[Rfam]
RNA sequence: UCGGUUAUUUAUUUUAGUUCCUUGCUUCUCUUGGUUAACCGAGCCAAUCCGAGAAGCUGAUUAAUCCGUAAGGAGCAACCCAUG
Numbered sequence: 001u002c003g004g005u006u007a008u009u010u011a012u013u014u015u016a017g018u019u020c021c022u023u024g025c026u027u028c029u030c031u032u033g034g035u036u037a038a039c040c041g042a043g044c045c046a047a048u049c050c051g052a053g054a055a056g057c058u059g060a061u062u063a064a065u066c067c068g069u070a071a072g073g074a075g076c077a078a079c080c081c082a083u084g
Stems, first nucleotide, its partner, number of pairs: 017076007024057006032046005
Dot-bracket structure: ................(((((((((((((..(((((.....))))).....))))))............)))))))........
RNA: RpsF leader
Organism: Photobacterium gaetbulicola